Notes:
Shown here is a 113-nucleotide sequence from Anaerofustis stercorihominis, a member of the family "FMN riboswitch aptamer (RFN element)". The match comes from Rfam's covariance-model search (118 bits).
[Rfam]
RNA sequence: AUUUAUCUUCAGGGCAAGGUGCAAUUCCUGACCGGCAGUAAAGUCUGCGAGCUAAUGGCUGAUAUGGUGAAAUUCCAUAACCGACGGUAAAGUCCGGAUGAAAGAAGAUAUGA
Numbered sequence: 001a002u003u004u005a006u007c008u009u010c011a012g013g014g015c016a017a018g019g020u021g022c023a024a025u026u027c028c029u030g031a032c033c034g035g036c037a038g039u040a041a042a043g044u045c046u047g048c049g050a051g052c053u054a055a056u057g058g059c060u061g062a063u064a065u066g067g068u069g070a071a072a073u074u075c076c077a078u079a080a081c082c083g084a085c086g087g088u089a090a091a092g093u094c095c096g097g098a099u100g101a102a103a104g105a106a107g108a109u110a111u112g113a
Stems, first nucleotide, its partner, number of pairs: 004110007017029003031093002033083002035048004043081002051059003063079005085096003